Shown here is a 158-nucleotide sequence from Streptococcus sp. DD10, a member of the family "M-box riboswitch aptamer (ykoK leader)". For this family Rfam cites "Insights into metalloregulation by M-box riboswitch RNAs via structural analysis of manganese-bound complexes" (Ramesh et al., J Mol Biol, 2011). The pairing is the family consensus, mapped onto this sequence. About the family: M-box riboswitch, also know as ykoK leader is described as a metaloregulatory RNA that sense divalent metals and function as a genetic control element of genes related to divalent metal transport in bacteria. It was first reported upstream of the B.subtilis ykoK gene and genes with related functions in other bacteria. Rfam 15.1 lists 1,095 matches to the family in 932 species. Gene Ontology terms of the family: regulation of gene expression and response to magnesium ion. Lineage of the source: Bacteria > Bacillota > Lactobacillales > Streptococcaceae > Streptococcus.
RNA sequence: CUAGAAAAUCGGUAGGUGAGGCUACCAUAGGGAUACGGAUGACUACCGCAAAGCAGUGGAGACACUACUCGCUGGUCAACAGUUCUGAUCGUGAAGGUCACAACUAAGCUCAUUUCAUUGCCCUAUGAAGCUAAAACUUGAACGAUACGACAAGACUU
Numbered sequence: 001c002u003a004g005a006a007a008a009u010c011g012g013u014a015g016g017u018g019a020g021g022c023u024a025c026c027a028u029a030g031g032g033a034u035a036c037g038g039a040u041g042a043c044u045a046c047c048g049c050a051a052a053g054c055a056g057u058g059g060a061g062a063c064a065c066u067a068c069u070c071g072c073u074g075g076u077c078a079a080c081a082g083u084u085c086u087g088a089u090c091g092u093g094a095a096g097g098u099c100a101c102a103a104c105u106a107a108g109c110u111c112a113u114u115u116c117a118u119u120g121c122c123c124u125a126u127g128a129a130g131c132u133a134a135a136a137c138u139u140g141a142a143c144g145a146u147a148c149g150a151c152a153a154g155a156c157u158u
Base pairs, nucleotide, nucleotide: 009150010149011143013095015138016137017136020132021131022130026127027126028125029124030123031122032121039113040112041111042110046074048072049071055066056065057064058063082104083103084102088098089097090096